[Rfam]
The record is a 48-nucleotide RNA sequence from Clostridium sp. AM58-1XD, which matches "uup RNA" in Rfam.
RNA sequence: GACGAAUCAGCUCUGUGCAGAUGGUACCGAUGAAACAUUGUACGGAGC
Numbered sequence: 001g002a003c004g005a006a007u008c009a010g011c012u013c014u015g016u017g018c019a020g021a022u023g024g025u026a027c028c029g030a031u032g033a034a035a036c037a038u039u040g041u042a043c044g045g046a047g048c
Stems, first nucleotide, its partner, number of pairs: 011047005017041003

Taxonomically the source falls in Clostridium (Bacteria, Bacillati, Bacillota, Clostridiaceae).
By type it is a cis-regulatory element.